[Rfam]
Rfam assigns this 140-nucleotide RNA sequence from Geotalea uraniireducens to the family "Group II catalytic intron D1-D4-7".
The pairing is the family consensus, mapped onto this sequence.
The family has 244 seed sequences and 1,296 matches in Rfam 15.1.
Group II introns are found in rRNA, tRNA and mRNA of organelles in fungi, plants and protists, and also in mRNA in bacteria.
The literature on the family includes a 2001 paper in Trends Genet by Bonen and Vogel, "The ins and outs of group II introns".
RNA sequence: CCUGAAGUAUCCCCUUCAGCGCCCUAGGCGGCGUGCUGGGUACGCGCUGUGUACUUGGUGCGAAGCCCGCUGACAAUGUACCGAAUCGGGUUUGAAUGGCGACAGGAGAACCCCUCCGGAAACUCCAUCCGGUUAAGGGC
Numbered sequence: 001c002c003u004g005a006a007g008u009a010u011c012c013c014c015u016u017c018a019g020c021g022c023c024c025u026a027g028g029c030g031g032c033g034u035g036c037u038g039g040g041u042a043c044g045c046g047c048u049g050u051g052u053a054c055u056u057g058g059u060g061c062g063a064a065g066c067c068c069g070c071u072g073a074c075a076a077u078g079u080a081c082c083g084a085a086u087c088g089g090g091u092u093u094g095a096a097u098g099g100c101g102a103c104a105g106g107a108g109a110a111c112c113c114c115u116c117c118g119g120a121a122a123c124u125c126c127a128u129c130c131g132g133u134u135a136a137g138g139g140c
Base pairs, nucleotide, nucleotide: 002019003018004017005016006015007014027071028070029069030068031067032062033061034060035059036058037057038056039055040054041053042052043051088113089112090111091110097104098103116132117131118130119129120128

It is one of the family's seed sequences.